[Rfam]
RNA sequence: GGUCCGUUGGCGGAGCGGCGACGCACUGGAUUGCAGAUCCAAUCAGCCUGGUUCAACUCCAGGACGGACCU
Number, nucleotide and partner (000 for none) at each position: 001g070002g069003u068004c067005c066006g065007u064008u000009g000010g024011c023012g022013g000014a000015g000016c000017g000018g000019c000020g000021a000022c012023g011024c010025a000026c000027u041028g040029g039030a038031u000032u000033g000034c000035a000036g000037a000038u030039c029040c028041a027042a000043u000044c000045a000046g000047c063048c062049u061050g060051g059052u000053u000054c000055a000056a000057c000058u000059c051060c050061a049062g048063g047064a007065c006066g005067g004068a003069c002070c001071u000
RNA: tRNA